[Rfam]
The family of this 55-nucleotide sequence from Oncorhynchus kisutch is "UnaL2 LINE 3' element". It is annotated as a cis-regulatory element. The family's consensus secondary structure is taken from published work. The source organism's lineage runs through Eukaryota, Deuterostomia, Euteleostomi, Teleostei and Oncorhynchus.
RNA sequence: GAUAAGCCAAUAUGGUAAGUCGCUCUGGAUAAGAGCGUCUGCUAAAUGACAGGAA
Numbered sequence: 001g002a003u004a005a006g007c008c009a010a011u012a013u014g015g016u017a018a019g020u021c022g023c024u025c026u027g028g029a030u031a032a033g034a035g036c037g038u039c040u041g042c043u044a045a046a047u048g049a050c051a052g053g054a055a
Stems, first nucleotide, its partner, number of pairs: 013044001014042001016041002021037006